This 263-nucleotide sequence from Pycnonotus jocosus belongs to the Rfam family "Small Cajal body specific RNA 6".
Rfam classes the family as a small Cajal body RNA.
Rfam describes the family as follows. U88 is small Cajal body specific RNA (scaRNA). scaRNAs are a novel class of small nuclear RNAs which localise to the Cajal bodies. U88 is found associated with both fibrillarin and Gar1p and co-localises with coilin in Cajal bodies.
The base pairs follow the family's consensus structure, which is taken from published work.
Taxonomically the source falls in Pycnonotus (Eukaryota, Chordata, Saurischia, Telluraves).
The family has 17 seed sequences and 1,309 matches in Rfam 15.1.
[Rfam]
Nucleotides: 263
Stems, first nucleotide, its partner, number of pairs: 001263004035246004040241001046219001062206003065121006078107003082103005129187001131186005144171006150164001153161001
Number, partner (000 for none) and nucleotide at each position: 001263g002262g003261u004260c005000u006000g007000u008000g009000a010000u011000g012000a013000a014000u015000a016000g017000u018000a019000a020000a021000a022000g023000g024000u025000c026000u027000g028000a029000u030000u031000a032000u033000c034000c035246c036245a037244g038243g039000a040241c041000u042000u043000g044000c045000a046219c047000u048000u049000c050000c051000a052000u053000g054000c055000c056000c057000a058000c059000u060000u061000c062206u063205c064204c065121c066120a067119g068118c069117a070116g071000u072000u073000u074000c075000u076000c077000c078107c079106c080105a081000a082103c083102c084101a085100c086099a087000g088000c089000a090000c091000a092000u093000c094000a095000a096000u097000g098000c099086u100085g101084u102083g103082g104000c105080u106079g107078g108000c109000a110000g111000a112000g113000u114000g115000u116070u117069u118068g119067c120066u121065g122000a123000c124000a125000g126000u127000g128000u129187g130000a131186g132185a133184u134183g135182u136000g137000c138000u139000c140000a141000g142000g143000u144171c145170a146169u147168g148167u149166u150164c151000a152000c153161c154000u155000g156000g157000a158000g159000c160000a161153g162000c163000g164150g165000a166149g167148a168147c169146a170145u171144g172000a173000c174000u175000g176000g177000g178000a179000u180000c181000a182135g183134c184133a185132u186131c187129c188000a189000a190000c191000a192000g193000u194000c195000c196000u197000c198000c199000u200000u201000g202000a203000a204064g205063g206062a207000a208000u209000u210000u211000g212000g213000g214000g215000u216000c217000u218000u219046g220000g221000a222000u223000u224000a225000g226000u227000c228000u229000a230000a231000u232000g233000g234000g235000a236000c237000a238000u239000g240000u241040g242000a243038u244037c245036u246035g247000a248000c249000u250000u251000u252000u253000c254000u255000g256000c257000u258000g259000a260004g261003a262002c263001c